Shown here is a 51-nucleotide RNA from Vibrio palustris, a member of the family "L31-Gammaproteobacteria ribosomal protein leader".
The family is grouped with related families in Rfam's "Ribosomal Protein L31 Leader clan".
Rfam classes the family as a cis-regulatory leader.
NCBI's taxonomy places the organism under Bacteria, Pseudomonadati, Pseudomonadota, Vibrionaceae, Vibrio.
The match comes from Rfam's covariance-model search (64 bits).
[Rfam]
RNA sequence: CGUGUGGUGUCCAACUUAGAUUUGGAUAGCGACACGGCCUAAUAUUGAGGU
Numbered sequence: 001c002g003u004g005u006g007g008u009g010u011c012c013a014a015c016u017u018a019g020a021u022u023u024g025g026a027u028a029g030c031g032a033c034a035c036g037g038c039c040u041a042a043u044a045u046u047g048a049g050g051u
Base pairs, nucleotide, nucleotide: 001036002035003034004033005032007030008029011025012024013023014022015019